[Rfam]
A member of the RNA family "MIR528 microRNA precursor family" from Paspalum vaginatum, 92 nucleotides long. Its family is annotated with RISC complex and miRNA-mediated post-transcriptional gene silencing in the Gene Ontology. The base pairs follow the family's consensus structure, which was predicted with RNAalifold. A search with the family's covariance model found it, with a score of 82 bits.

RNA sequence: GUGGAAGGGGCAUGCAGAGGAGCAGGAGGCCUUGUUGGAAGCCGACUCUGCUUUCCUCGCUCGCUCGCUCUCCUGUGCCUGCCUCUUCCAUU
Numbered sequence: 001g002u003g004g005a006a007g008g009g010g011c012a013u014g015c016a017g018a019g020g021a022g023c024a025g026g027a028g029g030c031c032u033u034g035u036u037g038g039a040a041g042c043c044g045a046c047u048c049u050g051c052u053u054u055c056c057u058c059g060c061u062c063g064c065u066c067g068c069u070c071u072c073c074u075g076u077g078c079c080u081g082c083c084u085c086u087u088c089c090a091u092u
Stems, first nucleotide, its partner, number of pairs: 001091012014078003018074005024069002